[Rfam]
RNA sequence: ACGCACUAGACGGAGAGGUAGCGGUGCUCUGUAACCUGCAAUCCGCUGUAGCAGGGUUGAAUUCCCCGGCGGAGGUGGCGGUGCUUGGAGCCUGUCCCCGGAUAAGUGGCGUUGAUGGUUGGACCCUGCGCAAUAAGACCCUGCGAACCCUGUCAGGUCCGGAAGGAAGCAGCAGUAAACAGGCAAUCUUGUGUGCCGCAGAAUUCUCUAACCUGAGCAAACUGUCCGGGUAACGUCUGAACACGGCUGAUCGACCCGGGGUGUGCGU
Numbered sequence: 001a002c003g004c005a006c007u008a009g010a011c012g013g014a015g016a017g018g019u020a021g022c023g024g025u026g027c028u029c030u031g032u033a034a035c036c037u038g039c040a041a042u043c044c045g046c047u048g049u050a051g052c053a054g055g056g057u058u059g060a061a062u063u064c065c066c067c068g069g070c071g072g073a074g075g076u077g078g079c080g081g082u083g084c085u086u087g088g089a090g091c092c093u094g095u096c097c098c099c100g101g102a103u104a105a106g107u108g109g110c111g112u113u114g115a116u117g118g119u120u121g122g123a124c125c126c127u128g129c130g131c132a133a134u135a136a137g138a139c140c141c142u143g144c145g146a147a148c149c150c151u152g153u154c155a156g157g158u159c160c161g162g163a164a165g166g167a168a169g170c171a172g173c174a175g176u177a178a179a180c181a182g183g184c185a186a187u188c189u190u191g192u193g194u195g196c197c198g199c200a201g202a203a204u205u206c207u208c209u210a211a212c213c214u215g216a217g218c219a220a221a222c223u224g225u226c227c228g229g230g231u232a233a234c235g236u237c238u239g240a241a242c243a244c245g246g247c248u249g250a251u252c253g254a255c256c257c258g259g260g261g262u263g264u265g266c267g268u
Stems, first nucleotide, its partner, number of pairs: 001268006009058003012030004017025001019023001035055005064261006074252003078248001081244003085240005093232002098229006106222002109218002117213007126201005131193002134191005140183004150175004158167003